[Rfam]
RNA sequence: GCCGAGCUGGGUUGCGAUAGCUAGUUAACCUAGCGGGGGCAAUGAGUGGUUUGGAUGAUGUCGCAGGGGUUCGUGGCGUGGAUUCUCAGUGUACGAUAUCUGGCCUGCCCGUUCAAGUUGGUAGUGAGCCGGUUUAGUCAGGCGUAGGCUUGGUAUUGCCGGUUCAUAAUGGGUUGGACACUGGAUCAGGCUGGUUUCACAGAGCAAUCACAUCCACCUACCUUCAACAUUGGAAGGAUAACAGGCCGGUGUACAUGGGAUCCACACAAUACCUCGGACUCCGCUUCUAUCAAACAAAUCAUUUU
Numbered sequence: 001g002c003c004g005a006g007c008u009g010g011g012u013u014g015c016g017a018u019a020g021c022u023a024g025u026u027a028a029c030c031u032a033g034c035g036g037g038g039g040c041a042a043u044g045a046g047u048g049g050u051u052u053g054g055a056u057g058a059u060g061u062c063g064c065a066g067g068g069g070u071u072c073g074u075g076g077c078g079u080g081g082a083u084u085c086u087c088a089g090u091g092u093a094c095g096a097u098a099u100c101u102g103g104c105c106u107g108c109c110c111g112u113u114c115a116a117g118u119u120g121g122u123a124g125u126g127a128g129c130c131g132g133u134u135u136a137g138u139c140a141g142g143c144g145u146a147g148g149c150u151u152g153g154u155a156u157u158g159c160c161g162g163u164u165c166a167u168a169a170u171g172g173g174u175u176g177g178a179c180a181c182u183g184g185a186u187c188a189g190g191c192u193g194g195u196u197u198c199a200c201a202g203a204g205c206a207a208u209c210a211c212a213u214c215c216a217c218c219u220a221c222c223u224u225c226a227a228c229a230u231u232g233g234a235a236g237g238a239u240a241a242c243a244g245g246c247c248g249g250u251g252u253a254c255a256u257g258g259g260a261u262c263c264a265c266a267c268a269a270u271a272c273c274u275c276g277g278a279c280u281c282c283g284c285u286u287c288u289a290u291c292a293a294a295c296a297a298a299u300c301a302u303u304u305u
Stems, first nucleotide, its partner, number of pairs: 001040003005022005029036002044304010056292002059289002063284002066281002069279005075273002078270001079264008088256001090255003094251002100249008109237002112235002114232002117228005124221002126165008137154007172219002175216004184209003191202003
A member of the RNA family "Plant signal recognition particle RNA" from Zingiber officinale, 305 nucleotides long. Rfam classes the family as a non-coding RNA gene. The family's consensus secondary structure is taken from published work.